This 383-nucleotide RNA sequence from Allobogoriella caseilytica belongs to the Rfam family "Bacterial RNase P class A".
A search with the family's covariance model found it, with a score of 309 bits.
The organism belongs to Allobogoriella, within Bacteria.
Rfam classes the family as a ribozyme.
[Rfam]
RNA sequence: UGAGUUGGCCAGGCGGCCGCGUUGCGCCCUUCGGGGCGCACCGAGGAACGUCCGGGCUCCGUAGGGCAGGGUGGUGGGUAACGCCCACCCGGGGUGACCCGCGGGACAGUGCCACAGAAAGCAGACCGCCACCGGGAGGGAUUCGUCUCGCCCGGUGGUCAGGGUGAAACGGUGGUGUAAGAGACCACCAGCGCGGCAGGUGACUGUCGCGGCUCGGUAAACCCCACCCGGAGCAAGACCAGACAGCAGGCGCAUGAGGGCUGCCCGCCCGAUGCCUGCGGGUAGGUCGCUAGAGGCGUGCGGCAACGUACGUCGUAGAUGGAUGGCCGUCACCAGGGCGUGAGCCCUGGCUACAAAACCCGGCGUAUCGGCCAACUCAUCCG
Numbered sequence: 001u002g003a004g005u006u007g008g009c010c011a012g013g014c015g016g017c018c019g020c021g022u023u024g025c026g027c028c029c030u031u032c033g034g035g036g037c038g039c040a041c042c043g044a045g046g047a048a049c050g051u052c053c054g055g056g057c058u059c060c061g062u063a064g065g066g067c068a069g070g071g072u073g074g075u076g077g078g079u080a081a082c083g084c085c086c087a088c089c090c091g092g093g094g095u096g097a098c099c100c101g102c103g104g105g106a107c108a109g110u111g112c113c114a115c116a117g118a119a120a121g122c123a124g125a126c127c128g129c130c131a132c133c134g135g136g137a138g139g140g141a142u143u144c145g146u147c148u149c150g151c152c153c154g155g156u157g158g159u160c161a162g163g164g165u166g167a168a169a170c171g172g173u174g175g176u177g178u179a180a181g182a183g184a185c186c187a188c189c190a191g192c193g194c195g196g197c198a199g200g201u202g203a204c205u206g207u208c209g210c211g212g213c214u215c216g217g218u219a220a221a222c223c224c225c226a227c228c229c230g231g232a233g234c235a236a237g238a239c240c241a242g243a244c245a246g247c248a249g250g251c252g253c254a255u256g257a258g259g260g261c262u263g264c265c266c267g268c269c270c271g272a273u274g275c276c277u278g279c280g281g282g283u284a285g286g287u288c289g290c291u292a293g294a295g296g297c298g299u300g301c302g303g304c305a306a307c308g309u310a311c312g313u314c315g316u317a318g319a320u321g322g323a324u325g326g327c328c329g330u331c332a333c334c335a336g337g338g339c340g341u342g343a344g345c346c347c348u349g350g351c352u353a354c355a356a357a358a359c360c361c362g363g364c365g366u367a368u369c370g371g372c373c374a375a376c377u378c379a380u381c382c383g
Stems, first nucleotide, its partner, number of pairs: 001379010011368001012331007020043002023040006048366003052363005057233004064266004069229005074088005089103001090101004104224002109222002111218003126163002128159009171189006191213001192211008237288004246279006258270004295314008